This 91-nucleotide sequence from Holothuria leucospilota belongs to the Rfam family "mir-7 microRNA precursor family". Its family is annotated with RISC complex and miRNA-mediated post-transcriptional gene silencing in the Gene Ontology. Lineage of the source: Eukaryota > Bilateria > Echinodermata > Echinozoa > Holothuria. From the family's description: This family represents the microRNA (miRNA) precursor mir-7. For this family Rfam cites "microRNAs: tiny regulators with great potential" (Ambros, Cell, 2001). Pairs were carried over by alignment from the consensus structure, which was predicted with PFOLD.
[Rfam]
Nucleotides: 091
Base pairs, nucleotide, nucleotide: 002090003089004088005087006086007085008084010082011081012080013079014077015076016075019072020071021070022069024068025067026066027065028064029063030062032061033060034059035058036057037056
Number, partner (000 for none) and nucleotide at each position: 001000c002090c003089g004088u005087c006086u007085c008084u009000c010082c011081u012080c013079a014077u015076g016075g017000a018000a019072g020071a021070c022069u023000g024068g025067u026066g027065a028064u029063u030062u031000u032061u033060u034059u035058g036057u037056u038000g039000g040000u041000a042000g043000a044000u045000a046000u047000u048000c049000u050000a051000a052000a053000g054000g055000c056037a057036a058035c059034a060033a061032a062030a063029a064028a065027u066026c067025a068024c069022a070021g071020u072019c073000g074000g075016c076015c077014a078000c079013u080012g081011a082010g083000g084008g085007g086006a087005g088004a089003c090002g091000a